[Rfam]
RNA sequence: CGUCUUUGCGCGGGAGAGUUCCGUGGCAGCCAGCCGCGGGCGCCGAAGGAGCAACACCUCUCCGUCAACCUCUCAGGCACCCGGACCGCACGAAGCCC
Numbered sequence: 001c002g003u004c005u006u007u008g009c010g011c012g013g014g015a016g017a018g019u020u021c022c023g024u025g026g027c028a029g030c031c032a033g034c035c036g037c038g039g040g041c042g043c044c045g046a047a048g049g050a051g052c053a054a055c056a057c058c059u060c061u062c063c064g065u066c067a068a069c070c071u072c073u074c075a076g077g078c079a080c081c082c083g084g085a086c087c088g089c090a091c092g093a094a095g096c097c098c
Base pairs, nucleotide, nucleotide: 006093007092008091010089011088012087013086020040021039022038023037024036025035042078043077044076045074046073049072050071051070056065057064
RNA: Glycine riboswitch aptamer
Organism: Mycobacterium sp. NAZ190054